[Rfam]
RNA sequence: ACACUGGCGUCGUCAUGGGGGAGUAGCCGCCCUGCGCAAGGCAGGGGCCCGACGUCAACACACUUGGCCUGAAAGCGGCCAUGGCGCGGGCAACCUCAACCGUCUGGCAAGACCUUUGACCACGCGUGCCGCCACUGGAGCCGGGGCGGCGCCGUGGUCAUCGCGAUCUGUGCCGGCCCCUGUU
Numbered sequence: 001a002c003a004c005u006g007g008c009g010u011c012g013u014c015a016u017g018g019g020g021g022a023g024u025a026g027c028c029g030c031c032c033u034g035c036g037c038a039a040g041g042c043a044g045g046g047g048c049c050c051g052a053c054g055u056c057a058a059c060a061c062a063c064u065u066g067g068c069c070u071g072a073a074a075g076c077g078g079c080c081a082u083g084g085c086g087c088g089g090g091c092a093a094c095c096u097c098a099a100c101c102g103u104c105u106g107g108c109a110a111g112a113c114c115u116u117u118g119a120c121c122a123c124g125c126g127u128g129c130c131g132c133c134a135c136u137g138g139a140g141c142c143g144g145g146g147c148g149g150c151g152c153c154g155u156g157g158u159c160a161u162c163g164c165g166a167u168c169u170g171u172g173c174c175g176g177c178c179c180c181u182g183u184u
Stems, first nucleotide, its partner, number of pairs: 031045003047091005053086005065081005097182002
The family of this 184-nucleotide RNA from Ideonella aquatica is "Manganese Mn2+ riboswitch aptamer (yybP-ykoY)". The literature on the family includes a 2001 paper in Curr Biol by Argaman et al., "Novel small RNA-encoding genes in the intergenic regions of Escherichia coli". A search with the family's covariance model found it, with a score of 68 bits. NCBI's taxonomy places the organism under Bacteria, Pseudomonadota, Burkholderiales, Sphaerotilaceae, Ideonella. This RNA was originally discovered in E. coli during a large scale screen and was named SraF. The family was later found to exist upstream of related families of protein genes in many bacteria, including the the yybP and ykoK genes in B. subtilis.